[Rfam]
RNA sequence: GAGCGAUAAAGGUAAACCCUGAGUGAUCGGGAGACGCAAAGUAAUAGGGUCUUUAACUACAAAGGCGUAGUGUAAGAUAGCCUUACUGCCGAA
Dot-bracket structure: ...........((....(((((....)))))....))..((((..((((((....((((........))))....)))..)))))))......
The family of this 93-nucleotide RNA sequence from Candidatus Brocadia sinica is "c-di-GMP-I riboswitch aptamer". Rfam links the family to the GO term cyclic-di-GMP binding. The match comes from Rfam's covariance-model search (53 bits).